[Rfam]
RNA sequence: UGUCUCCUCCAUGUCUCCUCCUGAUAUGGAUUAAGCCCGCUCACAGCAGCGGGCUUUUUUUC
Numbered sequence: 001u002g003u004c005u006c007c008u009c010c011a012u013g014u015c016u017c018c019u020c021c022u023g024a025u026a027u028g029g030a031u032u033a034a035g036c037c038c039g040c041u042c043a044c045a046g047c048a049g050c051g052g053g054c055u056u057u058u059u060u061u062c
Base pairs, nucleotide, nucleotide: 008030009029010028011027012026013025014024015023034055035054036053037052038051039050040049041048
Notes
Betaproteobacteria toxic small RNA: a 62-nucleotide sequence from Paraburkholderia acidiphila. The base pairs follow the family's consensus structure, which was predicted with WAR. Rfam describes the family as follows. Overexpression in amino aid rich medium attenuates growth, suggesting role in repressing amino acid intake and metabolism. The family has 51 seed sequences and 951 matches in Rfam 15.1.